[Rfam]
RNA sequence: CAGCAGGAUUUAGACUGUAAUUAUAGCUGUUAUGUGCUGUGUGGUCGUUCCCCCUGCUCAAAGUAAAGUUUGUUUCUUACCUAUCGCUGCCUGCUAUGCACCUGUAGCAGCCCAGGGAUGCUUGGUCUCACACAU
Dot-bracket structure: ..(((((.........((.(.((((((........))))))).)).......))))).............................(((.((((............))))..)))....................
Numbered sequence: 001c002a003g004c005a006g007g008a009u010u011u012a013g014a015c016u017g018u019a020a021u022u023a024u025a026g027c028u029g030u031u032a033u034g035u036g037c038u039g040u041g042u043g044g045u046c047g048u049u050c051c052c053c054c055u056g057c058u059c060a061a062a063g064u065a066a067a068g069u070u071u072g073u074u075u076c077u078u079a080c081c082u083a084u085c086g087c088u089g090c091c092u093g094c095u096a097u098g099c100a101c102c103u104g105u106a107g108c109a110g111c112c113c114a115g116g117g118a119u120g121c122u123u124g125g126u127c128u129c130a131c132a133c134a135u
Stems, first nucleotide, its partner, number of pairs: 003057005017045002020042001022041006087115003091110004

This 135-nucleotide sequence from Chrysochloris asiatica belongs to the Rfam family "Small nucleolar RNA SNORA63". The match comes from Rfam's covariance-model search (104 bits). Rfam 15.1 lists 1,279 matches to the family in 601 species. E3 belongs to the H/ACA class of snoRNAs and is involved in the processing of eukaryotic pre-rRNA and has regions of complementarity to 18S rRNA. E3 is encoded in introns in the gene for protein synthesis initiation factor 4AII. The organism belongs to Chrysochloris, within Eukaryota.